[Rfam]
RNA sequence: AGGGCCAUCAAAUGGCUGUGACUGCGUUCGUUAUUAGACUCGCAUCACAGCCACCUUUGAUGAGCUCUC
Numbered sequence: 001a002g003g004g005c006c007a008u009c010a011a012a013u014g015g016c017u018g019u020g021a022c023u024g025c026g027u028u029c030g031u032u033a034u035u036a037g038a039c040u041c042g043c044a045u046c047a048c049a050g051c052c053a054c055c056u057u058u059g060a061u062g063a064g065c066u067c068u069c
Base pairs, nucleotide, nucleotide: 006062007061008060009059010058011057012056013053014052015051016050017049018048019047020046021045023044024043025042
Shown here is a 69-nucleotide RNA sequence from Tropilaelaps mercedesae, a member of the family "mir-2 microRNA precursor family". The match comes from Rfam's covariance-model search (47 bits). Taxonomically the source falls in Tropilaelaps (Eukaryota, Eumetazoa, Chelicerata, Dermanyssoidea).